[Rfam]
Rfam assigns this 35-nucleotide sequence from Pipistrellus kuhlii to the family "Iron response element I". The family's RNA type in Rfam is cis-regulatory element.

RNA sequence: CUGUCUUUUGCUUCCACAGUGCUUGGAUGGAACAG
Numbered sequence: 001c002u003g004u005c006u007u008u009u010g011c012u013u014c015c016a017c018a019g020u021g022c023u024u025g026g027a028u029g030g031a032a033c034a035g
Stems, first nucleotide, its partner, number of pairs: 001035004006031003010028001012027003016023001017021001
The family has 62 seed sequences and 6,829 matches in Rfam 15.1.